[Rfam]
RNA sequence: GGCUCAAAUUUGAAGUAGAGAAGAUUAGAAGGAUCGUCUGACCCUACUUAACUUCUCUACUUCGAGUUUGUGCAA
Numbered sequence: 001g002g003c004u005c006a007a008a009u010u011u012g013a014a015g016u017a018g019a020g021a022a023g024a025u026u027a028g029a030a031g032g033a034u035c036g037u038c039u040g041a042c043c044c045u046a047c048u049u050a051a052c053u054u055c056u057c058u059a060c061u062u063c064g065a066g067u068u069u070g071u072g073c074a075a
Stems, first nucleotide, its partner, number of pairs: 002073002005070005011064013025050001027048002030045001032043001034041002
About this RNA:
mir-5928 microRNA precursor family: a 75-nucleotide RNA sequence from Haemonchus placei. Gene Ontology terms of the family: miRNA-mediated post-transcriptional gene silencing and RISC complex. The family has 5 seed sequences and 1,672 matches in Rfam 15.1. The organism belongs to Haemonchus, within Eukaryota.